This 87-nucleotide RNA sequence from Christensenella minuta belongs to the Rfam family "pemK RNA". Lineage of the source: Bacteria > Bacillota > Clostridia > Christensenellales > Christensenella. A search with the family's covariance model found it, with a score of 48 bits. By type it is a cis-regulatory element.
RNA sequence: AUAAUGAUACUCCCGCCCAGCCACAGCUUAUCACGCAAUGGGGGCGGUUGCAUGAGAACCAUGCAAGGGGGCAACAUAACCCCGUGG
Numbered sequence: 001a002u003a004a005u006g007a008u009a010c011u012c013c014c015g016c017c018c019a020g021c022c023a024c025a026g027c028u029u030a031u032c033a034c035g036c037a038a039u040g041g042g043g044g045c046g047g048u049u050g051c052a053u054g055a056g057a058a059c060c061a062u063g064c065a066a067g068g069g070g071g072c073a074a075c076a077u078a079a080c081c082c083c084g085u086g087g
Base pairs, nucleotide, nucleotide: 012084013047014046015045016044017043018042048066049065050064052062053061054060067083068082069081